A member of the RNA family "c-di-GMP-I-GGC riboswitch aptamer" from Cohnella herbarum, 86 nucleotides long. Taxonomically the source falls in Cohnella (Bacteria, Bacillati, Bacillota, Paenibacillaceae). The literature on the family includes a 2017 paper in Proc Natl Acad Sci U S A by Weinberg et al., "Bioinformatic analysis of riboswitch structures uncovers variant classes with altered ligand specificity".
Nucleotides: 086
Base pairs, nucleotide, nucleotide: 003083004082011036012035016031017030018029019028020027021026034073039079040078041077042076046075047074048071049070050069
Number, partner (000 for none) and nucleotide at each position: 001000c002000a003083c004082g005000a006000u007000a008000a009000c010000g011036g012035c013000a014000a015000a016031c017030c018029u019028g020027c021026u022000g023000a024000a025000a026021g027020g028019c029018a030017g031016g032000g033000a034073c035012g036011c037000a038000a039079a040078g041077c042076u043000a044000g045000a046075g047074g048071g049070c050069c051000u052000u053000c054000c055000c056000u057000u058000u059000c060000u061000u062000g063000g064000a065000g066000g067000a068000u069050g070049g071048c072000a073034g074047c075046c076042a077041g078040c079039u080000a081000c082004c083003g084000a085000a086000a